[Rfam]
RNA sequence: UCCGACCGGUCGAGUACUGACGUGCCCGACCCACAAGUGGAGGCUCCGAUCUCCCACCCGAACCGACCUCACGGUCGGCGGGUCAACGGUCCGGCUGCGCCCCGCGAUGACAUCGCGGCGGUGCUCCUGAUCCAUUGAGGAGCCCCGCCUGUGUCCCGUCCGGGGCGUUUUUC
Numbered sequence: 001u002c003c004g005a006c007c008g009g010u011c012g013a014g015u016a017c018u019g020a021c022g023u024g025c026c027c028g029a030c031c032c033a034c035a036a037g038u039g040g041a042g043g044c045u046c047c048g049a050u051c052u053c054c055c056a057c058c059c060g061a062a063c064c065g066a067c068c069u070c071a072c073g074g075u076c077g078g079c080g081g082g083u084c085a086a087c088g089g090u091c092c093g094g095c096u097g098c099g100c101c102c103c104g105c106g107a108u109g110a111c112a113u114c115g116c117g118g119c120g121g122u123g124c125u126c127c128u129g130a131u132c133c134a135u136u137g138a139g140g141a142g143c144c145c146c147g148c149c150u151g152u153g154u155c156c157c158g159u160c161c162g163g164g165g166c167g168u169u170u171u172u173c
Base pairs, nucleotide, nucleotide: 002089003088004087008027009026028084029083030082031081032080034060037057038056039055040054041052042051063078064077065076066075067074068073099166100165101164102163103162104161105158106157109155114153115152116151117149118148119147120146121145123143124142125141126140127139
Annotation:
This 173-nucleotide RNA sequence belongs to the Rfam family "Streptomyces RNA 1601". The family's RNA type in Rfam is small RNA. Rfam's curators write: Identified by deep sequencing of transcriptome at the end of exponential growth phase. Appears longer on northern blot than sequencing transcript. Streptomyces specific. The base pairs follow the family's consensus structure. The match comes from Rfam's covariance-model search (111 bits). On this family, see Vockenhuber et al., RNA Biol 2011: "Deep sequencing-based identification of small non-coding RNAs in Streptomyces coelicolor".